[Rfam]
RNA: Glycine riboswitch aptamer
Organism: Roseateles asaccharophilus
RNA sequence: UGCGCCCCGUCAGGAGAGAGCUCGCUCGCGCGAGCCGCCGAAGGCGCAGUGGCACCGGUUGAUCCCACGCUGCGAACGCUCAGGCAAAAGGACUGACAAGACGCU
Dot-bracket structure: .....(..(((((......((((........)))).(((((..(((...((((...............))))....))))).))).......)))))..).....